[Rfam]
Nucleotides: 091
Base pairs, nucleotide, nucleotide: 001091002090003089004088005087010080011079012078013077014076015075017074018073019072020070021069022068026054027053029052030051031050032049033048034047035046040085042083058067059066060065
Number, partner (000 for none) and nucleotide at each position: 001091u002090g003089u004088a005087g006000a007000a008000a009000a010080g011079a012078a013077a014076g015075a016000u017074g018073c019072g020070c021069g022068u023000u024000a025000a026054g027053u028000g029052u030051u031050u032049a033048u034047g035046g036000a037000a038000u039000g040085g041000a042083g043000a044000u045000g046035c047034c048033a049032u050031a051030a052029a053027a054026c055000g056000a057000a058067g059066a060065g061000a062000g063000a064000a065060c066059u067058c068022g069021c070020g071000a072019u073018g074017c075015u076014c077013u078012u079011u080010c081000g082000a083042u084000c085040c086000g087005c088004u089003g090002c091001g
The family of this 91-nucleotide RNA sequence from Urinicoccus massiliensis is "THF (Tetrahydrofolate) riboswitch aptamer". Rfam describes the family as follows. Tetrahydrofolate (THF) riboswitch was first reported for Ames et al. as an RNA motif in 5' untranslated (5'-UTR)regions of folate transport and biosynthesis genes in Firmicutes genomes. The literature on the family includes a 2014 paper in Chem Biol by Trausch and Batey, "A disconnect between high-affinity binding and efficient regulation by antifolates and purines in the tetrahydrofolate riboswitch". Rfam links the family to the GO term tetrahydrofolate metabolic process.